[Rfam]
RNA sequence: GUGAAGUUAAUCACAAGCAAACAUAUACCCCUUUGUUUGAUCGUGAAAAAUUUCUCCCAUCCCCUUUGUUCGUUUAUGUAUAUGAAGAGCCGUGCAAAAAAGCAUGGCUUUUUC
Number, nucleotide and partner (000 for none) at each position: 001g000002u000003g054004a053005a052006g051007u050008u049009a000010a000011u046012c045013a044014c043015a000016a000017g000018c039019a038020a037021a036022c035023a034024u000025a000026u000027a000028c000029c000030c000031c000032u000033u000034u023035g022036u021037u020038u019039g018040a000041u000042c000043g014044u013045g012046a011047a000048a000049a008050a007051u006052u005053u004054c003055u000056c000057c000058c000059a000060u000061c000062c000063c000064c000065u000066u000067u000068g000069u000070u082071c000072g000073u000074u080075u000076a000077u000078g000079u000080a074081u000082a070083u000084g000085a000086a111087g110088a109089g108090c107091c106092g105093u104094g103095c102096a000097a000098a000099a000100a000101a000102g095103c094104a093105u092106g091107g090108c089109u088110u087111u086112u000113u000114c000